[Rfam]
Rfam assigns this 120-nucleotide RNA from Otolemur garnettii to the family "Small nucleolar RNA SNORA40".
The match comes from Rfam's covariance-model search (76 bits).
The snoRNA ACA 40 belongs to the H/ACA family of snoRNAs and guides the pseudouridylation of 28S rRNA subunit at position U4565. NB This family has a high threshold value to exclude a large number of closely related sequences that do not appear to have conserved H and ACA boxes, and may be pseudogenes.
Gene Ontology terms of the family: RNA processing and nucleolus.
The family has 28 seed sequences and 2,550 matches in Rfam 15.1.
A reference for the family is Ofengand and Bakin (1997), "Mapping to nucleotide resolution of pseudouridine residues in large subunit ribosomal RNAs from representative eukaryotes, prokaryotes, archaebacteria, mitochondria and chloroplasts", J Mol Biol.
Lineage of the source: Eukaryota > Metazoa > Gnathostomata > Strepsirrhini > Otolemur.
RNA sequence: ACCAUUAGUUAUUAUUGUUUAUCUCUUACUAUGCUUAGAGACAGGUGCAAAAAAAAUCCUCUUUUGCAACCCAGAACUCAUUGCUAAGUAUGAAUUUUGAUACAUGUAAGAAGGAAUAUU
Numbered sequence: 001a002c003c004a005u006u007a008g009u010u011a012u013u014a015u016u017g018u019u020u021a022u023c024u025c026u027u028a029c030u031a032u033g034c035u036u037a038g039a040g041a042c043a044g045g046u047g048c049a050a051a052a053a054a055a056a057u058c059c060u061c062u063u064u065u066g067c068a069a070c071c072c073a074g075a076a077c078u079c080a081u082u083g084c085u086a087a088g089u090a091u092g093a094a095u096u097u098u099g100a101u102a103c104a105u106g107u108a109a110g111a112a113g114g115a116a117u118a119u120u
Base pairs, nucleotide, nucleotide: 001046002045003044006041011035013033014032015031017029018028056117057116059114060113062111063110064109065108066107072099073098074097075096076095078093079092080091081090